[Rfam]
RNA sequence: CAUAGAGAAAGGUACACUCAGGGAAGUCGGCAAAAUAGAUGCGUAAGUUCGCAAGAAGCAUUGGCUCUGAGGGCAAAGUGGGGGUCCACAGGAGGGCCAGUGUCCUUUCGUGCGCGGCCGUUUUCUGCGUUUUGUUGUUUUGGCGUUCGCGCCUUAGCACAUACGCGGCGACCGUUUUGCUCGGAACGUGAAGGCUACCCUCCCGAGCCGUAUCUACUAACCUCCUUCUGGUGUGUUGUUUUUACGUCUCACUCCCGCGCAGGUGUUUUCGCUUCCUUUUUUGGUUGCGCACCUACAAAUUGCCAACUCAGAACUGCUUACGGCGGGGAAUCCAACUGUAUAAUUAAAACAUAGGUUUGUGAUGCAUCCAAGUGGUGUAUGUCGCAAACUGAUUUCUGCCCAGUGCUCUGAAUGUCAACGUGACGAGAUUCACCGACGCGCGGGUAAACGGCGGGAGUAACUAUGACUCUCUUAAGGUAGCCAAAUGCCUCGUCUUCCAAUUAGAGACGCGCAUGAAUGGAUUAAUGAGAUUCCCUCUGUCCCGAGUUACUAUCUAGCGAAACGACAGUCAAGGGAACGGACUUGAAG
Numbered sequence: 001c002a003u004a005g006a007g008a009a010a011g012g013u014a015c016a017c018u019c020a021g022g023g024a025a026g027u028c029g030g031c032a033a034a035a036u037a038g039a040u041g042c043g044u045a046a047g048u049u050c051g052c053a054a055g056a057a058g059c060a061u062u063g064g065c066u067c068u069g070a071g072g073g074c075a076a077a078g079u080g081g082g083g084g085u086c087c088a089c090a091g092g093a094g095g096g097c098c099a100g101u102g103u104c105c106u107u108u109c110g111u112g113c114g115c116g117g118c119c120g121u122u123u124u125c126u127g128c129g130u131u132u133u134g135u136u137g138u139u140u141u142g143g144c145g146u147u148c149g150c151g152c153c154u155u156a157g158c159a160c161a162u163a164c165g166c167g168g169c170g171a172c173c174g175u176u177u178u179g180c181u182c183g184g185a186a187c188g189u190g191a192a193g194g195c196u197a198c199c200c201u202c203c204c205g206a207g208c209c210g211u212a213u214c215u216a217c218u219a220a221c222c223u224c225c226u227u228c229u230g231g232u233g234u235g236u237u238g239u240u241u242u243u244a245c246g247u248c249u250c251a252c253u254c255c256c257g258c259g260c261a262g263g264u265g266u267u268u269u270c271g272c273u274u275c276c277u278u279u280u281u282u283g284g285u286u287g288c289g290c291a292c293c294u295a296c297a298a299a300u301u302g303c304c305a306a307c308u309c310a311g312a313a314c315u316g317c318u319u320a321c322g323g324c325g326g327g328g329a330a331u332c333c334a335a336c337u338g339u340a341u342a343a344u345u346a347a348a349a350c351a352u353a354g355g356u357u358u359g360u361g362a363u364g365c366a367u368c369c370a371a372g373u374g375g376u377g378u379a380u381g382u383c384g385c386a387a388a389c390u391g392a393u394u395u396c397u398g399c400c401c402a403g404u405g406c407u408c409u410g411a412a413u414g415u416c417a418a419c420g421u422g423a424c425g426a427g428a429u430u431c432a433c434c435g436a437c438g439c440g441c442g443g444g445u446a447a448a449c450g451g452c453g454g455g456a457g458u459a460a461c462u463a464u465g466a467c468u469c470u471c472u473u474a475a476g477g478u479a480g481c482c483a484a485a486u487g488c489c490u491c492g493u494c495u496u497c498c499a500a501u502u503a504g505a506g507a508c509g510c511g512c513a514u515g516a517a518u519g520g521a522u523u524a525a526u527g528a529g530a531u532u533c534c535c536u537c538u539g540u541c542c543c544g545a546g547u548u549a550c551u552a553u554c555u556a557g558c559g560a561a562a563c564g565a566c567a568g569u570c571a572a573g574g575g576a577a578c579g580g581a582c583u584u585g586a587a588g
Stems, first nucleotide, its partner, number of pairs: 003556004011551004016547004021542003038062005047052001063315002066312006072304005078292003082288001084286001086284001087207001089205001091203004100195002103192001104188001106186005112180003116176003120172003125168006316321001326535007333527002337351003354390008363379001365377004394521003398452003403449002405445004410441001413440003420433004453471006472476001492508005569586005